[Rfam]
RNA sequence: UGCAUAUACGCCAAACCCCGGGUGACCGGGGGACGGAAAGCCACGGGACUCACUUAUUUUUGCGACAAGUCAGCCGGGUUGCCGGUG
Numbered sequence: 001u002g003c004a005u006a007u008a009c010g011c012c013a014a015a016c017c018c019c020g021g022g023u024g025a026c027c028g029g030g031g032g033a034c035g036g037a038a039a040g041c042c043a044c045g046g047g048a049c050u051c052a053c054u055u056a057u058u059u060u061u062g063c064g065a066c067a068a069g070u071c072a073g074c075c076g077g078g079u080u081g082c083c084g085g086u087g
Stems, first nucleotide, its partner, number of pairs: 001087001003084001011036002016031006034073001039080004044076003047071003

c-di-GMP-I-GGC riboswitch aptamer: an 87-nucleotide sequence from Geobacter sp. OR-1. The family is grouped with related families in Rfam's "c-di-GMP_I riboswitch clan". NCBI's taxonomy places the organism under Bacteria, Pseudomonadati, Desulfuromonadia, Geobacteraceae, Geobacter. Pairs were carried over by alignment from the consensus structure, which is taken from published work.